Rfam assigns this 402-nucleotide sequence from Streptomyces roseus to the family "Bacterial RNase P class A". It is annotated as a ribozyme.

RNA sequence: CAACCGGAGCGGGCGGCCGCGUCGGGAUCCCCGGAUCCCGCCGAGGAACGUCCGGGCUCCACAGGGCAGGGUGGUGGCUAACGGCCACCCGGGGUGACCCGCGGGACAGUGCCACAGAAAACAGACCGCCGGGGGCUUCGGUCCUCGGUAAGGGUGAAACGGUGGUGUAAGAGACCACCAGCGCCUGGGGUGACCCAGGCGGCUAGGUAAACCCCACCCGGAGCAAGGUCAAGAGGAGUCGUUUUCGGACGGCUCUGCGCGAACGUUCGAGGGCUGCCCGCCCGAGUUCGCGGGUAGACCGCACGAGGCCGGCGGCAACGCCGGUCCUAGAUGGAUGGCCGUCUCCCCGGCGACCGCGAGGUCACCGGGCGACAGAACCCGGCGUACAGCUCCGGUUGUUCU
Dot-bracket structure: ((((((((((((((((((.((.((((((......)))))).))....[[[.[[[[[((((...[[[[.((((((((((.....)))))(((((....)))).)((...(((((............(((((((((((....)))))))))..)).......((((((.......)))))).(((((((((....)))))))).)..)))..)))))))))))))...((((............................((((((......((((.]]]]))))..)))))).....))))......((((((((....))))))))..........)))))))..................................]]]]]]]].).))))))))))....
Numbered sequence: 001c002a003a004c005c006g007g008a009g010c011g012g013g014c015g016g017c018c019g020c021g022u023c024g025g026g027a028u029c030c031c032c033g034g035a036u037c038c039c040g041c042c043g044a045g046g047a048a049c050g051u052c053c054g055g056g057c058u059c060c061a062c063a064g065g066g067c068a069g070g071g072u073g074g075u076g077g078c079u080a081a082c083g084g085c086c087a088c089c090c091g092g093g094g095u096g097a098c099c100c101g102c103g104g105g106a107c108a109g110u111g112c113c114a115c116a117g118a119a120a121a122c123a124g125a126c127c128g129c130c131g132g133g134g135g136c137u138u139c140g141g142u143c144c145u146c147g148g149u150a151a152g153g154g155u156g157a158a159a160c161g162g163u164g165g166u167g168u169a170a171g172a173g174a175c176c177a178c179c180a181g182c183g184c185c186u187g188g189g190g191u192g193a194c195c196c197a198g199g200c201g202g203c204u205a206g207g208u209a210a211a212c213c214c215c216a217c218c219c220g221g222a223g224c225a226a227g228g229u230c231a232a233g234a235g236g237a238g239u240c241g242u243u244u245u246c247g248g249a250c251g252g253c254u255c256u257g258c259g260c261g262a263a264c265g266u267u268c269g270a271g272g273g274c275u276g277c278c279c280g281c282c283c284g285a286g287u288u289c290g291c292g293g294g295u296a297g298a299c300c301g302c303a304c305g306a307g308g309c310c311g312g313c314g315g316c317a318a319c320g321c322c323g324g325u326c327c328u329a330g331a332u333g334g335a336u337g338g339c340c341g342u343c344u345c346c347c348c349g350g351c352g353a354c355c356g357c358g359a360g361g362u363c364a365c366c367g368g369g370c371g372a373c374a375g376a377a378c379c380c381g382g383c384g385u386a387c388a389g390c391u392c393c394g395g396u397u398g399u400u401c402u
Stems, first nucleotide, its partner, number of pairs: 001398010011387001012343007020043002023040006048385003052382005057223004064279004069219005074088005089103001090101004104214002109212002111208003126153002128149009161179006181203001182201008227300004259291006271283004307326008